[Rfam]
RNA sequence: GGCGGUAGCCGUUUCGCCUUGGGCGGUCGGCUACCUCUCUGCAGAAGGGAGGGAUGCCUGUGACAGUAUUCGAAGCACUCAUGCUUACAUUGACCUUCGGACUGCUAAUUGUAGCGAUACUGUCUCAUCAACGCAAAUAGACCGCCCACCCACCAAGGACGCGGUCUAUUUGACUACUCUUUGAGAAGCCUACAGCCCUUAAAAGCGGCUAUUGCCGAGAGAGUCGUGUUAGCAGCACGGCUC
Dot-bracket structure: (((((.(((.(((((.(..((((..(.((....((.((((.......))))))........(((((((......(..............).........(..............)..)))))))..................)).)..)))).((...............))..........).))))(...............)).))).)))))....((((((((((...))))))))))
RNA: BsrG